RNA: R2 RNA element
RNA sequence: AAGUAACAUGAGAGUGAUAUUCAGUAGAUGCUCAUCUAGUGGAUCUUUUAAGGAAAAAAAAGGGAGGGGGUUUUAGCCGGUAGGCGAGACAUUUGCAGUAUCGCGAUGCAAAUGUCAUCGAGUCCGGCACUCCCUUAGGGUACGGGCCCUAGGGGGUCUUUUGAAGAUUUCCCCCUACCCUCGUAAAA
Numbered sequence: 001a002a003g004u005a006a007c008a009u010g011a012g013a014g015u016g017a018u019a020u021u022c023a024g025u026a027g028a029u030g031c032u033c034a035u036c037u038a039g040u041g042g043a044u045c046u047u048u049u050a051a052g053g054a055a056a057a058a059a060a061a062g063g064g065a066g067g068g069g070g071u072u073u074u075a076g077c078c079g080g081u082a083g084g085c086g087a088g089a090c091a092u093u094u095g096c097a098g099u100a101u102c103g104c105g106a107u108g109c110a111a112a113u114g115u116c117a118u119c120g121a122g123u124c125c126g127g128c129a130c131u132c133c134c135u136u137a138g139g140g141u142a143c144g145g146g147c148c149c150u151a152g153g154g155g156g157u158c159u160u161u162u163g164a165a166g167a168u169u170u171c172c173c174c175c176u177a178c179c180c181u182c183g184u185a186a187a188a
Base pairs, nucleotide, nucleotide: 037186039184040183061181062180063179064178066175067174068173076128077127078126079125080124085120086119087118088116089115090114091107092106094105095104096103130156131155132154133153134152135151